[Rfam]
The record is a 75-nucleotide RNA from Kingdonia uniflora, which matches "Plastid-ycf2 5UTR RNA" in Rfam. Plastid ycf2 is a non-coding RNA (ncRNA) recognised in plastids. It was found in the prime untranslated region (5UTR) of ycf2 genes, it presents a tRNA-like motif which suggests it can be involved in mRNA maturation, particularly involved in defining the precise 5' end of the transcript. The family has 204 seed sequences and 3,521 matches in Rfam 15.1.
RNA sequence: AUGCAUCCAGUAGGAAUUGAACUUACGAAUUUACCAAUUACGAGUUGGGAACUUUAACCACUCAGCCACGGAUGC
Numbered sequence: 001a002u003g004c005a006u007c008c009a010g011u012a013g014g015a016a017u018u019g020a021a022c023u024u025a026c027g028a029a030u031u032u033a034c035c036a037a038u039u040a041c042g043a044g045u046u047g048g049g050a051a052c053u054u055u056a057a058c059c060a061c062u063c064a065g066c067c068a069c070g071g072a073u074g075c
Base pairs, nucleotide, nucleotide: 003075004074005073006072007071008070010026011025012024013023014022042067044066045065046064047063048062049061
Dot-bracket structure: ..((((((.(((((.......)))))...............(.((((((...........)))))))..))))))